RNA: Caenorhabditis snoRNA ceN53
Organism: Cercopithifilaria johnstoni
RNA sequence: GUGCGUUGAUUGAAAUAAUCAUUGAGCCAAUCCUUAACAGAAUGUAUUGUGGUGACCAAAUGAUAGGGCUGAGCAC
Numbered sequence: 001g002u003g004c005g006u007u008g009a010u011u012g013a014a015a016u017a018a019u020c021a022u023u024g025a026g027c028c029a030a031u032c033c034u035u036a037a038c039a040g041a042a043u044g045u046a047u048u049g050u051g052g053u054g055a056c057c058a059a060a061u062g063a064u065a066g067g068g069c070u071g072a073g074c075a076c
Stems, first nucleotide, its partner, number of pairs: 001076004